[Rfam]
RNA: UnaL2 LINE 3' element
Organism: Salvelinus namaycush
RNA sequence: UGCACUCACUACUGUAAAUUGCUCUGGAUCAGAGCGUCUGCGAAAUGACUAAAA
Numbered sequence: 001u002g003c004a005c006u007c008a009c010u011a012c013u014g015u016a017a018a019u020u021g022c023u024c025u026g027g028a029u030c031a032g033a034g035c036g037u038c039u040g041c042g043a044a045a046u047g048a049c050u051a052a053a054a
Stems, first nucleotide, its partner, number of pairs: 013043001014041003020036006
Dot-bracket structure: ............((((...((((((.....))))))..))).)...........